[Rfam]
RNA sequence: GAUAACCAAAAAUUACCGCUGGAUUCAGUGUUGGAUUGGUAAUUAGACGCACUUUUUGAAUGAGUGGAUCGUAAAGCCCACCAAAGAUCAUCGCUUUGGCGACUAACAACAAUGCACCCGUACCUAACACCACUAGAUGAAUACCGAGAAUCGUUGUCAUCUUGUUAGCAUCAUCCCA
Numbered sequence: 001g002a003u004a005a006c007c008a009a010a011a012a013u014u015a016c017c018g019c020u021g022g023a024u025u026c027a028g029u030g031u032u033g034g035a036u037u038g039g040u041a042a043u044u045a046g047a048c049g050c051a052c053u054u055u056u057u058g059a060a061u062g063a064g065u066g067g068a069u070c071g072u073a074a075a076g077c078c079c080a081c082c083a084a085a086g087a088u089c090a091u092c093g094c095u096u097u098g099g100c101g102a103c104u105a106a107c108a109a110c111a112a113u114g115c116a117c118c119c120g121u122a123c124c125u126a127a128c129a130c131c132a133c134u135a136g137a138u139g140a141a142u143a144c145c146g147a148g149a150a151u152c153g154u155u156g157u158c159a160u161c162u163u164g165u166u167a168g169c170a171u172c173a174u175c176c177c178a
Stems, first nucleotide, its partner, number of pairs: 136175005145168001147166002

About this RNA: Rfam assigns this 178-nucleotide RNA from Thermocoleostomius sinensis to the family "Antisense RNA which regulates isiA expression". Taxonomically the source falls in Thermocoleostomius sinensis (Bacteria, Cyanophyceae, Oculatellaceae, Thermocoleostomius). Pairs were carried over by alignment from the consensus structure, which was predicted with PFOLD.